[Rfam]
A member of the RNA family "Archaeal large subunit ribosomal RNA" from Natronomonas pharaonis, 359 nucleotides of a longer RNA. Rfam links the family to the GO terms ribosome and structural constituent of ribosome. The sequence is in the family's curated seed alignment.

RNA sequence: UGCAGUAGCAGCGAUAGUCGGGUGUGAAUCCUGACGGCCUAAUGAGCAAGGGUUCCUCGGCAAUGUUUGUCAGCCGAGGGUUAGCCGGUCCUAAGACUCGUCGUAAUUCGAGCGAGUCGAAGUGGGAAACUGGUUAAUAUUCCAGUGCCACUAUGCAUUGAACGCCGACGCCUUGGGGUCGACCGAACCGGGCCUUCGCCCGGUCGAACUGUCCAAAUCCGUGGAAGCCGUAAUGGCACGAAGCGGACGAACGGCAGGAUAGCGCAAGUCGGUUCAACCUGGGGCCCGUGAAAAGGCAAGCAUAGUGUCCGUACCGAGAUCCGACACAGGUGCUCAUGCCGGCGAAAGGCAAGGCCUGU
Numbered sequence: 001u002g003c004a005g006u007a008g009c010a011g012c013g014a015u016a017g018u019c020g021g022g023u024g025u026g027a028a029u030c031c032u033g034a035c036g037g038c039c040u041a042a043u044g045a046g047c048a049a050g051g052g053u054u055c056c057u058c059g060g061c062a063a064u065g066u067u068u069g070u071c072a073g074c075c076g077a078g079g080g081u082u083a084g085c086c087g088g089u090c091c092u093a094a095g096a097c098u099c100g101u102c103g104u105a106a107u108u109c110g111a112g113c114g115a116g117u118c119g120a121a122g123u124g125g126g127a128a129a130c131u132g133g134u135u136a137a138u139a140u141u142c143c144a145g146u147g148c149c150a151c152u153a154u155g156c157a158u159u160g161a162a163c164g165c166c167g168a169c170g171c172c173u174u175g176g177g178g179u180c181g182a183c184c185g186a187a188c189c190g191g192g193c194c195u196u197c198g199c200c201c202g203g204u205c206g207a208a209c210u211g212u213c214c215a216a217a218u219c220c221g222u223g224g225a226a227g228c229c230g231u232a233a234u235g236g237c238a239c240g241a242a243g244c245g246g247a248c249g250a251a252c253g254g255c256a257g258g259a260u261a262g263c264g265c266a267a268g269u270c271g272g273u274u275c276a277a278c279c280u281g282g283g284g285c286c287c288g289u290g291a292a293a294a295g296g297c298a299a300g301c302a303u304a305g306u307g308u309c310c311g312u313a314c315c316g317a318g319a320u321c322c323g324a325c326a327c328a329g330g331u332g333c334u335c336a337u338g339c340c341g342g343c344g345a346a347a348g349g350c351a352a353g354g355c356c357u358g359u
Stems, first nucleotide, its partner, number of pairs: 017035006036356004044335004050315002055079006064072002086311003090125002095118006101111003129146005149307008164297003170285008181274005187204005209257004218247005227237003263268001321330002337351004

Description: The family's consensus secondary structure is taken from published work.